[Rfam]
RNA: Bacterial RNase P class A
Organism: Tepidimicrobium xylanilyticum
RNA sequence: UGAGUAAAUCGGGUGAUCGCGUGCUUUAGCAUGAGGAAAGUCCGUGCUCCAUAGGGCAGGAUGCUGGAUAACGUCCAGUGGGGGCGACCCUAAGGAUAGUGCAACAGAAAUAUACCGCCUAACAUUCCAUUUGAAAUGUUGGGUAAGGGUGGAAAGGUGAGGUAAGAGCUCACCAGCAACUAGGCGACUAGUUGGCUCUGUAAACCCCAUCCGGAGCAAGACCAAGCUAGGGAUUAAAAAGGCAGUGGCCCGCUGCUGUCCCGAUUGGUAGGUCGCAUGAACCUAUUGGUAACAAUAGGUCAUAGAUAGAUGAUCAUCCAAGACAGAACACGGCUUAUAGAUUUACUCAUUGC
Numbered sequence: 001u002g003a004g005u006a007a008a009u010c011g012g013g014u015g016a017u018c019g020c021g022u023g024c025u026u027u028a029g030c031a032u033g034a035g036g037a038a039a040g041u042c043c044g045u046g047c048u049c050c051a052u053a054g055g056g057c058a059g060g061a062u063g064c065u066g067g068a069u070a071a072c073g074u075c076c077a078g079u080g081g082g083g084g085c086g087a088c089c090c091u092a093a094g095g096a097u098a099g100u101g102c103a104a105c106a107g108a109a110a111u112a113u114a115c116c117g118c119c120u121a122a123c124a125u126u127c128c129a130u131u132u133g134a135a136a137u138g139u140u141g142g143g144u145a146a147g148g149g150u151g152g153a154a155a156g157g158u159g160a161g162g163u164a165a166g167a168g169c170u171c172a173c174c175a176g177c178a179a180c181u182a183g184g185c186g187a188c189u190a191g192u193u194g195g196c197u198c199u200g201u202a203a204a205c206c207c208c209a210u211c212c213g214g215a216g217c218a219a220g221a222c223c224a225a226g227c228u229a230g231g232g233a234u235u236a237a238a239a240a241g242g243c244a245g246u247g248g249c250c251c252g253c254u255g256c257u258g259u260c261c262c263g264a265u266u267g268g269u270a271g272g273u274c275g276c277a278u279g280a281a282c283c284u285a286u287u288g289g290u291a292a293c294a295a296u297a298g299g300u301c302a303u304a305g306a307u308a309g310a311u312g313a314u315c316a317u318c319c320a321a322g323a324c325a326g327a328a329c330a331c332g333g334c335u336u337a338u339a340g341a342u343u344u345a346c347u348c349a350u351u352g353c
Stems, first nucleotide, its partner, number of pairs: 001349010011338001012318007020033005038336003042333005047216004054251004059212005064078005079093001080091004094207002099205002101201003115148002117144009156174006176196001177194007220274004230262005242256005281300008